[Rfam]
RNA: L31-Firmicutes ribosomal protein leader
RNA sequence: CUCUGGAGGGAGCUCUUCAGGGCAAAGGAA
Number, nucleotide and partner (000 for none) at each position: 001c022002u021003c020004u019005g018006g015007a014008g013009g000010g000011a000012g000013c008014u007015c006016u000017u000018c005019a004020g003021g002022g001023c000024a000025a000026a000027g000028g000029a000030a000